[Rfam]
RNA sequence: ACGAACCUCAUUACAGCUGCUGACCACUGCACAAGAUUAGAAUGUGACUCUUGUGCGUGUGACAACGGCUAUUGUUAGUGUUCAAAAUCGACAAU
Numbered sequence: 001a002c003g004a005a006c007c008u009c010a011u012u013a014c015a016g017c018u019g020c021u022g023a024c025c026a027c028u029g030c031a032c033a034a035g036a037u038u039a040g041a042a043u044g045u046g047a048c049u050c051u052u053g054u055g056c057g058u059g060u061g062a063c064a065a066c067g068g069c070u071a072u073u074g075u076u077a078g079u080g081u082u083c084a085a086a087a088u089c090g091a092c093a094a095u
Stems, first nucleotide, its partner, number of pairs: 005081002007078002010075002015070005021064002024061001025059002028057006035050002
RNA: mir-210 microRNA precursor family
Organism: Anopheles stephensi